[Rfam]
Shown here is a 45-nucleotide RNA from Noviherbaspirillum cavernae, a member of the family "Guanidine-II riboswitch aptamer (mini-ykkC)". It scores 44 bits against the family's covariance model. About the family: Simpler in structure and has fewer highly conserved nucleotide positions than the ykkC-yxkD leader. Despite this each of its two stem-loop structures directly bind free guanidine. Therefore, mini-ykkC RNA motif represents a distinct class of guanidine-sensing RNAs. Its crystal structure was also determined. Rfam links the family to the GO term regulation of gene expression. Pairs were carried over by alignment from the consensus structure, which is taken from published work.

RNA sequence: AAGUGGGGACGACCUCACCGCUCCAACGACAAUCGGGACGGCCCG
Number, nucleotide and partner (000 for none) at each position: 001a000002a000003g018004u017005g016006g015007g014008g013009a000010c000011g000012a000013c008014c007015u006016c005017a004018c003019c000020g000021c000022u000023c000024c000025a000026a000027c000028g000029a000030c000031a000032a000033u000034c045035g044036g043037g042038a000039c000040g000041g000042c037043c036044c035045g034